[Rfam]
The family of this 105-nucleotide sequence from Prunus yedoensis is "MIR6274 microRNA precursor family". Gene Ontology terms of the family: miRNA-mediated post-transcriptional gene silencing and RISC complex.

RNA sequence: GGAUAUUACUAUUUUGUUAUUCUCGACUAAUAACACAAUGACACAUUGAAAAAUUACUCUACGUGUCAUUGAGUUAUUGGCUGGGAAUAGCAAAAAGUAUUAUCC
Numbered sequence: 001g002g003a004u005a006u007u008a009c010u011a012u013u014u015u016g017u018u019a020u021u022c023u024c025g026a027c028u029a030a031u032a033a034c035a036c037a038a039u040g041a042c043a044c045a046u047u048g049a050a051a052a053a054u055u056a057c058u059c060u061a062c063g064u065g066u067c068a069u070u071g072a073g074u075u076a077u078u079g080g081c082u083g084g085g086a087a088u089a090g091c092a093a094a095a096a097g098u099a100u101u102a103u104c105c
Stems, first nucleotide, its partner, number of pairs: 002104004012095009022085004027080008036071009046061001048059002